[Rfam]
RNA sequence: UUAGCUCAAAUUUGUAUGCAGUUGAAACAGCGCCCCUAGCGACAAACGUAGACAAAUGUUCCGACUCCAUACAAAUUUGAGUUA
Numbered sequence: 001u002u003a004g005c006u007c008a009a010a011u012u013u014g015u016a017u018g019c020a021g022u023u024g025a026a027a028c029a030g031c032g033c034c035c036c037u038a039g040c041g042a043c044a045a046a047c048g049u050a051g052a053c054a055a056a057u058g059u060u061c062c063g064a065c066u067c068c069a070u071a072c073a074a075a076u077u078u079g080a081g082u083u084a
Stems, first nucleotide, its partner, number of pairs: 008078009018068001020066005026060004035051001039047001

Rfam assigns this 84-nucleotide RNA sequence from Bombyx mori to the family "mir-2807 microRNA precursor family".
A search with the family's covariance model found it, with a score of 63 bits.
NCBI's taxonomy places the organism under Eukaryota, Metazoa, Altocrustacea, Pterygota, Bombyx.
The family has 8 seed sequences and 5,120 matches in Rfam 15.1.
A reference for the family is Liu et al. (2010), "MicroRNAs of Bombyx mori identified by Solexa sequencing", BMC Genomics.
Its family is annotated with RISC complex and miRNA-mediated post-transcriptional gene silencing in the Gene Ontology.